RNA sequence: UCAUUCAAUAAGUAAUAACACACACGUAUCGACACCUGCGCCGGGGUGCUCUGGAAUCGCCUUCUUCGGAUGGCUUUUUACGGGGUCGGUUGCAUGGGAUACGUGGAGGCAUAAC
Dot-bracket structure: ......................((((((((....(.(((((((....(((((.............................))))))))).))).).))))))))..........
Numbered sequence: 001u002c003a004u005u006c007a008a009u010a011a012g013u014a015a016u017a018a019c020a021c022a023c024a025c026g027u028a029u030c031g032a033c034a035c036c037u038g039c040g041c042c043g044g045g046g047u048g049c050u051c052u053g054g055a056a057u058c059g060c061c062u063u064c065u066u067c068g069g070a071u072g073g074c075u076u077u078u079u080a081c082g083g084g085g086u087c088g089g090u091u092g093c094a095u096g097g098g099a100u101a102c103g104u105g106g107a108g109g110c111a112u113a114a115c
Stems, first nucleotide, its partner, number of pairs: 023105008035096001037094003040090004048086005

Annotation
Shown here is a 115-nucleotide RNA sequence from Rouxiella badensis, a member of the family "t44 RNA". By type it is a small RNA. The literature on the family includes a 2002 paper in Nucleic Acids Res by Tjaden et al., "Transcriptome analysis of Escherichia coli using high-density oligonucleotide probe arrays". Rfam's curators write: This family consists of a number of bacterial RNA genes of between 135 and 170 bases in length. Lineage of the source: Bacteria > Pseudomonadati > Pseudomonadota > Gammaproteobacteria > Rouxiella. The match comes from Rfam's covariance-model search (74 bits).